[Rfam]
RNA sequence: AUCACUUGGGGAUCUUGUUAAAAUGCAGACUGUAAGUCAGUUGGUCUGGAGUGGGGACUGAGAUUCUGCAUUUCUAACAAGAUCCCAGGAGAUGCCGA
Number, nucleotide and partner (000 for none) at each position: 001a000002u000003c091004a000005c089006u000007u000008g000009g085010g084011g083012a000013u000014c081015u080016u079017g078018u077019u076020a075021a073022a072023a071024u000025g069026c068027a067028g066029a065030c000031u063032g000033u061034a000035a000036g000037u000038c000039a000040g000041u000042u000043g000044g000045u000046c000047u000048g000049g000050a000051g000052u000053g000054g000055g000056g000057a000058c000059u000060g000061a033062g000063a031064u000065u029066c028067u027068g026069c025070a000071u023072u022073u021074c000075u020076a019077a018078c017079a016080a015081g014082a000083u011084c010085c009086c000087a000088g000089g005090a000091g003092a000093u000094g000095c000096c000097g000098a000
Rfam assigns this 98-nucleotide RNA sequence from Diceros bicornis to the family "mir-544 microRNA precursor family". Pairs were carried over by alignment from the consensus structure, which was predicted with RNAalifold. A search with the family's covariance model found it, with a score of 73 bits. NCBI's taxonomy places the organism under Eukaryota, Vertebrata, Euteleostomi, Perissodactyla, Diceros bicornis.